[Rfam]
Notes
Histone 3' UTR stem-loop: a 46-nucleotide RNA. Pairs were carried over by alignment from the consensus structure, which is taken from published work. About the family: The mRNAs of metazoan histone genes lack a poly-A tail. 3' end processing occurs at a site between a highly conserved stem-loop (modelled by this family) and a purine rich region around 20 nts downstream (the histone downstream element, or HDE).

RNA sequence: CCAACGGCUCUUUUCAGAGCCACCCACAGAGUCAGAAAAAGUGUCU
Numbered sequence: 001c002c003a004a005c006g007g008c009u010c011u012u013u014u015c016a017g018a019g020c021c022a023c024c025c026a027c028a029g030a031g032u033c034a035g036a037a038a039a040a041g042u043g044u045c046u
Stems, first nucleotide, its partner, number of pairs: 006021006